RNA sequence: AUAGCUGUGAGGAGUGAAAAGUGAACUGAAACGAAAAGCCCUUGGAGUCGAAACACGGACAGACGCCCAAGGGCUUUUCAGUU
Numbered sequence: 001a002u003a004g005c006u007g008u009g010a011g012g013a014g015u016g017a018a019a020a021g022u023g024a025a026c027u028g029a030a031a032c033g034a035a036a037a038g039c040c041c042u043u044g045g046a047g048u049c050g051a052a053a054c055a056c057g058g059a060c061a062g063a064c065g066c067c068c069a070a071g072g073g074c075u076u077u078u079c080a081g082u083u
Stems, first nucleotide, its partner, number of pairs: 034078007044068002047064003
Rfam assigns this 83-nucleotide sequence from Aerosakkonema funiforme to the family "Cyano-1 RNA".
It is annotated as a small RNA.
The match comes from Rfam's covariance-model search (43 bits).
NCBI's taxonomy places the organism under Bacteria, Bacillati, Aerosakkonematales, Aerosakkonemataceae, Aerosakkonema funiforme.
Rfam 15.1 lists 283 matches to the family in 194 species.
The base pairs follow the family's consensus structure, which is taken from published work.